Rfam assigns this 88-nucleotide RNA from Rhizoclosmatium globosum to the family "Small nucleolar RNA R38". On this family, see Bachellerie et al., Trends Biochem Sci 1995: "Antisense snoRNAs: a family of nucleolar RNAs with long complementarities to rRNA".
RNA sequence: AUUUGGGAAUGAUGAACGAAUUUUGUCAAUCAAACAGUUAUCCCUGACGGAAAGAUUAUUUGUCGAUAUGAUGGACUCUGACCCAAAU
Numbered sequence: 001a002u003u004u005g006g007g008a009a010u011g012a013u014g015a016a017c018g019a020a021u022u023u024u025g026u027c028a029a030u031c032a033a034a035c036a037g038u039u040a041u042c043c044c045u046g047a048c049g050g051a052a053a054g055a056u057u058a059u060u061u062g063u064c065g066a067u068a069u070g071a072u073g074g075a076c077u078c079u080g081a082c083c084c085a086a087a088u
Stems, first nucleotide, its partner, number of pairs: 001088007
Dot-bracket structure: (((((((..........................................................................)))))))

Source information
Rfam links the family to the GO terms nucleolus and RNA processing. The source organism's lineage runs through Eukaryota, chytridiomyceta, Chytridiomycotina, Chytridiomycetes and Rhizoclosmatium. Rfam describes the family as follows. snoR38 is a C/D box small nucleolar RNA conserved across yeast, human, Arabidopsis and rice. The family's consensus secondary structure was predicted with PFOLD.